Rfam assigns this 96-nucleotide RNA sequence from Rhodobacter sp. SGA-6-6 to the family "Rhodo-rpoB RNA".
[Rfam]
RNA sequence: GGUUCGGGAGCCGCCUGACGGGACAGGCGGCAGGUAUGGAACCUCUCUCUCCCUCUCCGCCCAGGCGGCGCGCUUCCGUGGCCCGACGGAAGCCCG
Numbered sequence: 001g002g003u004u005c006g007g008g009a010g011c012c013g014c015c016u017g018a019c020g021g022g023a024c025a026g027g028c029g030g031c032a033g034g035u036a037u038g039g040a041a042c043c044u045c046u047c048u049c050u051c052c053c054u055c056u057c058c059g060c061c062c063a064g065g066c067g068g069c070g071c072g073c074u075u076c077c078g079u080g081g082c083c084c085g086a087c088g089g090a091a092g093c094c095c096g
Stems, first nucleotide, its partner, number of pairs: 001043005010031008069096002072093007